[Rfam]
The record is an 86-nucleotide sequence from Anolis carolinensis, which matches "Small nucleolar RNA SNORD121A" in Rfam. Rfam classes the family as a C/D-box small nucleolar RNA. Its family is annotated with nucleolus and RNA processing in the Gene Ontology. A reference for the family is Yang et al. (2006), "snoSeeker: an advanced computational package for screening of guide and orphan snoRNA genes in the human genome", Nucleic Acids Res.

RNA sequence: GGCCAGCAGACUAUGAUGUGAUAUUCUUUCCAAGCACAUAUCUGACUGCUGCAUGAGGAAACAAACUGUUUCUGAGUCUUCUGGCC
Numbered sequence: 001g002g003c004c005a006g007c008a009g010a011c012u013a014u015g016a017u018g019u020g021a022u023a024u025u026c027u028u029u030c031c032a033a034g035c036a037c038a039u040a041u042c043u044g045a046c047u048g049c050u051g052c053a054u055g056a057g058g059a060a061a062c063a064a065a066c067u068g069u070u071u072c073u074g075a076g077u078c079u080u081c082u083g084g085c086c
Base pairs, nucleotide, nucleotide: 001086002085003084004083005082006081008079009078010077011076